This 68-nucleotide RNA sequence from Candidatus Parepulonipiscium sp. PG-Nun2H_MBin03 belongs to the Rfam family "RAGATH-18 RNA". From the family's description: Actinobacteria, Firmicutes, Fusobacteria, Thermotogae (1 example). The family's consensus secondary structure is taken from published work.
RNA sequence: CCUUUGGAGUGUUAUAUCAAAUGACGGUAGCAAGCAAUAUAGCGAAAUCAGACACGAUGAAUAAGGAA
Numbered sequence: 001c002c003u004u005u006g007g008a009g010u011g012u013u014a015u016a017u018c019a020a021a022u023g024a025c026g027g028u029a030g031c032a033a034g035c036a037a038u039a040u041a042g043c044g045a046a047a048u049c050a051g052a053c054a055c056g057a058u059g060a061a062u063a064a065g066g067a068a
Stems, first nucleotide, its partner, number of pairs: 001066004009055005022050003030043002